[Rfam]
Annotation
The family of this 87-nucleotide RNA from Haemaphysalis longicornis is "mir-5928 microRNA precursor family". Its family is annotated with miRNA-mediated post-transcriptional gene silencing and RISC complex in the Gene Ontology.

RNA sequence: AGUGCAGGGAUGAAGCACUGUAGUGUCGGGAGGUCCAGCUUUAAAAAGCUGGACCUCCCGACACUACAGUGCUUCAUCCCUGCACUC
Numbered sequence: 001a002g003u004g005c006a007g008g009g010a011u012g013a014a015g016c017a018c019u020g021u022a023g024u025g026u027c028g029g030g031a032g033g034u035c036c037a038g039c040u041u042u043a044a045a046a047a048g049c050u051g052g053a054c055c056u057c058c059c060g061a062c063a064c065u066a067c068a069g070u071g072c073u074u075c076a077u078c079c080c081u082g083c084a085c086u087c
Base pairs, nucleotide, nucleotide: 001086002085003084004083005082006081007080008079009078011076012075013074014073015072016071017070018069019068020067021066022065023064025062026061027060028059029058030057032055033054034053035052036051037050038049039048040047041046